[Rfam]
RNA sequence: GCGGUCGUGGCGGAAAUGGUAGACGCGCAGCGUUGAGGUCGCUGUGGGCUUAGCCCGUGGAGGUUCGAUUCCUCUCGACCGCA
Numbered sequence: 001g002c003g004g005u006c007g008u009g010g011c012g013g014a015a016a017u018g019g020u021a022g023a024c025g026c027g028c029a030g031c032g033u034u035g036a037g038g039u040c041g042c043u044g045u046g047g048g049c050u051u052a053g054c055c056c057g058u059g060g061a062g063g064u065u066c067g068a069u070u071c072c073u074c075u076c077g078a079c080c081g082c083a
Base pairs, nucleotide, nucleotide: 001082002081003080004079005078006077007076010026011025012024028044029043030042031041032040059075060074061073062072063071
Dot-bracket structure: (((((((..(((...........))).(((((.......)))))..............(((((.......)))))))))))).
The record is an 83-nucleotide RNA from Methyloligella sp. GL2, which matches "tRNA" in Rfam. The family's consensus secondary structure is taken from published work. It is annotated as a transfer RNA. It scores 52 bits against the family's covariance model. Lineage of the source: Bacteria > Pseudomonadati > Alphaproteobacteria > Hyphomicrobiales > Methyloligella.